[Rfam]
RNA sequence: AGAGAGUUAUUUUGAAGUAAAUUUGAUAAAAAAGCCUUUAAUUUCAAUAAAAUAUCUUAAAAGGUUGAUUUGGAUCUUAGUAGGUGAAUUUGGGGAUUUUUAGCUGAAUGGUGCGACCGAGUGGACUCGAACCACCGACCCCCACCA
Numbered sequence: 001a002g003a004g005a006g007u008u009a010u011u012u013u014g015a016a017g018u019a020a021a022u023u024u025g026a027u028a029a030a031a032a033a034g035c036c037u038u039u040a041a042u043u044u045c046a047a048u049a050a051a052a053u054a055u056c057u058u059a060a061a062a063g064g065u066u067g068a069u070u071u072g073g074a075u076c077u078u079a080g081u082a083g084g085u086g087a088a089u090u091u092g093g094g095g096a097u098u099u100u101u102a103g104c105u106g107a108a109u110g111g112u113g114c115g116a117c118c119g120a121g122u123g124g125a126c127u128c129g130a131a132c133c134a135c136c137g138a139c140c141c142c143c144a145c146c147a
Stems, first nucleotide, its partner, number of pairs: 024050001026048001031044003065079001067077001109144003113140001118137002121135004